Annotation: Rfam assigns this 105-nucleotide RNA sequence from Jeotgalibacillus soli to the family "SAM riboswitch aptamer (S box leader)". From the family's description: The SAM riboswitch is found upstream of a number of genes which code for proteins involved in methionine or cysteine biosynthesis in Gram-positive bacteria. Taxonomically the source falls in Jeotgalibacillus (Bacteria, Bacillati, Bacilli, Caryophanales).
RNA sequence: UACUUAUCGAGAGUGACCGAGGGAUAGGCCCGAUGACGUCCAGCAACCGCCCAGUGGGGAAAGGUGCUACUUCCUACAGGAUGAUUUCAUUCUGAAAGAUAAGUC
Numbered sequence: 001u002a003c004u005u006a007u008c009g010a011g012a013g014u015g016a017c018c019g020a021g022g023g024a025u026a027g028g029c030c031c032g033a034u035g036a037c038g039u040c041c042a043g044c045a046a047c048c049g050c051c052c053a054g055u056g057g058g059g060a061a062a063g064g065u066g067c068u069a070c071u072u073c074c075u076a077c078a079g080g081a082u083g084a085u086u087u088c089a090u091u092c093u094g095a096a097a098g099a100u101a102a103g104u105c
Base pairs, nucleotide, nucleotide: 002104003103004102005101006100007099008098013041015040016039017038021031022030023029025076026075027074028073042068043067044066045065047064048063050059051058052057072097077094078093079092080091081090082089